The record is a 134-nucleotide RNA from Roseovarius litoreus, which matches "TPP riboswitch aptamer (THI element)" in Rfam.
The match comes from Rfam's covariance-model search (70 bits).
The source organism's lineage runs through Bacteria, Pseudomonadota, Rhodobacterales, Roseobacteraceae and Roseovarius.
RNA sequence: GCAAAUCCAUAGGGGAGCCUCGCCACAGAGGCUGAGAAACCGAUAGGUCUCUGGACGAUGAACCAGUGCCGGUGCGGUGACCCUUUUAACCUGAUCCGGAUCAUGCCGGCGGAGGAAAUGGGAUAUGCUUGAGG
Numbered sequence: 001g002c003a004a005a006u007c008c009a010u011a012g013g014g015g016a017g018c019c020u021c022g023c024c025a026c027a028g029a030g031g032c033u034g035a036g037a038a039a040c041c042g043a044u045a046g047g048u049c050u051c052u053g054g055a056c057g058a059u060g061a062a063c064c065a066g067u068g069c070c071g072g073u074g075c076g077g078u079g080a081c082c083c084u085u086u087u088a089a090c091c092u093g094a095u096c097c098g099g100a101u102c103a104u105g106c107c108g109g110c111g112g113a114g115g116a117a118a119u120g121g122g123a124u125a126u127g128c129u130u131g132a133g134g
Stems, first nucleotide, its partner, number of pairs: 006122005011084004016078001017032005040077003090115003096109004